[Rfam]
RNA: SAH (S-adenosyl-L-homocysteine) riboswitch aptamer
Organism: Diaphorobacter ruginosibacter
RNA sequence: UUUUCCGAGGAGCGUUGCAGCGUCCCCCAGUGAGCGGGACGUGAGGCUCGGAUCAACACUUUGGCAACGACGCUCACCCACG
Numbered sequence: 001u002u003u004u005c006c007g008a009g010g011a012g013c014g015u016u017g018c019a020g021c022g023u024c025c026c027c028c029a030g031u032g033a034g035c036g037g038g039a040c041g042u043g044a045g046g047c048u049c050g051g052a053u054c055a056a057c058a059c060u061u062u063g064g065c066a067a068c069g070a071c072g073c074u075c076a077c078c079c080a081c082g
Base pairs, nucleotide, nucleotide: 004052005051006050007049008048021041022040023039024038025037026036
Dot-bracket structure: ...(((((............((((((.........))))))......)))))..............................